[Rfam]
RNA: Bacillaceae-1 RNA
RNA sequence: AAAAAAAGAAGCAAGCUUAAAAGCGUCGCAUCUUGCGACAACAGCUGACUGACCUACAUCUUGUGAG
Numbered sequence: 001a002a003a004a005a006a007a008g009a010a011g012c013a014a015g016c017u018u019a020a021a022a023g024c025g026u027c028g029c030a031u032c033u034u035g036c037g038a039c040a041a042c043a044g045c046u047g048a049c050u051g052a053c054c055u056a057c058a059u060c061u062u063g064u065g066a067g
Base pairs, nucleotide, nucleotide: 011049014046015045016044017043025039026038027037028036029035053067055065056064057063